The record is a 78-nucleotide RNA sequence from Fundicoccus ignavus, which matches "Fluoride riboswitch aptamer (crcB RNA motif)" in Rfam. The base pairs follow the family's consensus structure, which is taken from published work.
RNA sequence: UAAGCAAUAGGGAAUGAAGUUCUCCCAGUGCUAGCAAUAGCCGAACCGCUAAAAAAAGCUGAUGACUUCUGCAAUUAU
Numbered sequence: 001u002a003a004g005c006a007a008u009a010g011g012g013a014a015u016g017a018a019g020u021u022c023u024c025c026c027a028g029u030g031c032u033a034g035c036a037a038u039a040g041c042c043g044a045a046c047c048g049c050u051a052a053a054a055a056a057a058g059c060u061g062a063u064g065a066c067u068u069c070u071g072c073a074a075u076u077a078u
Stems, first nucleotide, its partner, number of pairs: 010026004016069006048059003